[Rfam]
RNA sequence: CCUCCCGCUUCCCCUUCCCUCCCUGAGCGGGGCCGCUCGUGCAAUCGAGAGGCGUUGGGCCCUGGAGAUUGUUCCCCUUUCUCCAGGGCUUUUUUUU
Numbered sequence: 001c002c003u004c005c006c007g008c009u010u011c012c013c014c015u016u017c018c019c020u021c022c023c024u025g026a027g028c029g030g031g032g033c034c035g036c037u038c039g040u041g042c043a044a045u046c047g048a049g050a051g052g053c054g055u056u057g058g059g060c061c062c063u064g065g066a067g068a069u070u071g072u073u074c075c076c077c078u079u080u081c082u083c084c085a086g087g088g089c090u091u092u093u094u095u096u097u
Stems, first nucleotide, its partner, number of pairs: 004031006033052002036049004059089010

This 97-nucleotide RNA sequence from Herbaspirillum sp. YR522 belongs to the Rfam family "Burkholderia RNA 7 (anti-hemB)". Lineage of the source: Bacteria > Pseudomonadati > Betaproteobacteria > Oxalobacteraceae > Herbaspirillum. By type it is a small RNA. From the family's description: This RNA motif was identified by computational search in b-proteobacteria Burkholderia.